[Rfam]
RNA: MIR162_1 microRNA precursor family
Organism: Arabis nemorensis
RNA sequence: GUAAAAGUCGUUGGAGGCAGCGGUUCAUCGAUCUCUUCCUGAGGAAAUUUUUUGUUAAAAAGCAUGAACAGAUCGAUAAACCUCUGCAUCCAGCGUUUACCUA
Dot-bracket structure: ............(((..(((.((((.(((((((..(((...........................)))..))))))).)))).)))..)))............